[Rfam]
RNA: MIR535 microRNA precursor family
RNA sequence: CAAAUCGUAUGACGCCGAGAGAAAGCACGCUAGUACACAAUCGUGCCCCAUGCAUGAAUGCAUACGAGCGUGCUCUCUCUCGUUGUCAAACAAUA
Numbered sequence: 001c002a003a004a005u006c007g008u009a010u011g012a013c014g015c016c017g018a019g020a021g022a023a024a025g026c027a028c029g030c031u032a033g034u035a036c037a038c039a040a041u042c043g044u045g046c047c048c049c050a051u052g053c054a055u056g057a058a059u060g061c062a063u064a065c066g067a068g069c070g071u072g073c074u075c076u077c078u079c080u081c082g083u084u085g086u087c088a089a090a091c092a093a094u095a
Base pairs, nucleotide, nucleotide: 010088011087012086013085014084016082017081020078021077025073026072027071028070029069030068031067033065034064